The record is a 61-nucleotide sequence from Camellia sinensis, which matches "Plastid-psbN 5UTR RNA" in Rfam. By type it is a cis-regulatory element. On this family, see Richter et al., Plant Commun 2023: "Retrograde signaling in plants: A critical review focusing on the GUN pathway and beyond". Plastid psbN is a non-coding RNA (ncRNA) recognised in plastids. It was reported as a conserved 11 stem-loop in the prime untranslated region (5UTR) of psbN genes. It has been reported that the motif is retained in a subset of mature transcripts in barley, which can suggests a possible role in transcript alternative 5 prime processing. Lineage of the source: Eukaryota > Embryophyta > Spermatophyta > Mesangiospermae > Camellia sinensis. It scores 70 bits against the family's covariance model.

RNA sequence: UGCGACACCCAUUAAAGGAGUCGUUUUCCAUCCAGGAGCAACUUUACCAUAUUUCGAAAUC
Numbered sequence: 001u002g003c004g005a006c007a008c009c010c011a012u013u014a015a016a017g018g019a020g021u022c023g024u025u026u027u028c029c030a031u032c033c034a035g036g037a038g039c040a041a042c043u044u045u046a047c048c049a050u051a052u053u054u055c056g057a058a059a060u061c
Stems, first nucleotide, its partner, number of pairs: 017045005023039005